A member of the RNA family "mir-219 microRNA precursor family" from Gouania willdenowi, 79 nucleotides long. The literature on the family includes a 2003 paper in Science by Lim et al., "Vertebrate microRNA genes". Rfam links the family to the GO terms RISC complex and miRNA-mediated post-transcriptional gene silencing.
[Rfam]
RNA sequence: UCUGGAGCUGAUUGUCCAAACGCAAUUCUUGUAUGACUUCUCCAUGUCCAGGAGUUGUGGAUGGACAUCAUGCUCCCGG
Numbered sequence: 001u002c003u004g005g006a007g008c009u010g011a012u013u014g015u016c017c018a019a020a021c022g023c024a025a026u027u028c029u030u031g032u033a034u035g036a037c038u039u040c041u042c043c044a045u046g047u048c049c050a051g052g053a054g055u056u057g058u059g060g061a062u063g064g065a066c067a068u069c070a071u072g073c074u075c076c077c078g079g
Base pairs, nucleotide, nucleotide: 002078004076005075006074007073009070010069011068012067014066015065016064017063018062021059022058023057024056025055026054027053028052029051030050031049